[Rfam]
RNA sequence: GCCCCCGGCAGCCCCUCCUGAUGAUUAUUCUUCCUAAGCCUGCUCAUGGUGAGCAAACUGAGCCUUUAAGUUGACUAAAGGUGCUGCUUCCCC
Numbered sequence: 001g002c003c004c005c006c007g008g009c010a011g012c013c014c015c016u017c018c019u020g021a022u023g024a025u026u027a028u029u030c031u032u033c034c035u036a037a038g039c040c041u042g043c044u045c046a047u048g049g050u051g052a053g054c055a056a057a058c059u060g061a062g063c064c065u066u067u068a069a070g071u072u073g074a075c076u077a078a079a080g081g082u083g084c085u086g087c088u089u090c091c092c093c
Base pairs, nucleotide, nucleotide: 007088008087009086010085011084012083014081015080
Dot-bracket structure: ......((((((.((................................................................)).)))))).....
Shown here is a 93-nucleotide sequence from Sapajus apella, a member of the family "Small nucleolar RNA SNORD125". The source organism's lineage runs through Eukaryota, Eumetazoa, Vertebrata, Boreoeutheria and Sapajus. The family has 16 seed sequences and 526 matches in Rfam 15.1. Clan: SNORD61 clan. The literature on the family includes a 2006 paper in Nucleic Acids Res by Yang et al., "snoSeeker: an advanced computational package for screening of guide and orphan snoRNA genes in the human genome".